[Rfam]
RNA sequence: GACAUCAAGGACCUGCAGGACAAGAUUCUUGGUGCCAUCAUUGAGAGCUCCUGGACUGUCCUGCAGAUUGACAAU
Numbered sequence: 001g002a003c004a005u006c007a008a009g010g011a012c013c014u015g016c017a018g019g020a021c022a023a024g025a026u027u028c029u030u031g032g033u034g035c036c037a038u039c040a041u042u043g044a045g046a047g048c049u050c051c052u053g054g055a056c057u058g059u060c061c062u063g064c065a066g067a068u069u070g071a072c073a074a075u
Base pairs, nucleotide, nucleotide: 010069011068013066014065015064016063017062018061019060020059021058022057027055028054029053031051032050034048
This 75-nucleotide RNA sequence from Callithrix jacchus belongs to the Rfam family "mir-492 microRNA precursor family".
The match comes from Rfam's covariance-model search (79 bits).
The family's consensus secondary structure was predicted with RNAalifold.
A reference for the family is Zhou et al. (2009), "In silico detection and characteristics of novel microRNA genes in the Equus caballus genome using an integrated ab initio and comparative genomic approach", Genomics.
Rfam 15.1 lists 149 matches to the family in 48 species.
Gene Ontology terms of the family: RISC complex and miRNA-mediated post-transcriptional gene silencing.